[Rfam]
RNA sequence: CACAAGCAGUGAUGAUGACGACUUCAUGUCACAGUCCUGAAAAUACAGUGUGGGUCAUUAAGUCACUAUCUCUUCUGAGCUUGUU
Numbered sequence: 001c002a003c004a005a006g007c008a009g010u011g012a013u014g015a016u017g018a019c020g021a022c023u024u025c026a027u028g029u030c031a032c033a034g035u036c037c038u039g040a041a042a043a044u045a046c047a048g049u050g051u052g053g054g055u056c057a058u059u060a061a062g063u064c065a066c067u068a069u070c071u072c073u074u075c076u077g078a079g080c081u082u083g084u085u
Stems, first nucleotide, its partner, number of pairs: 002084006
RNA: Small nucleolar RNA SNORD11B
Organism: Cyprinus carpio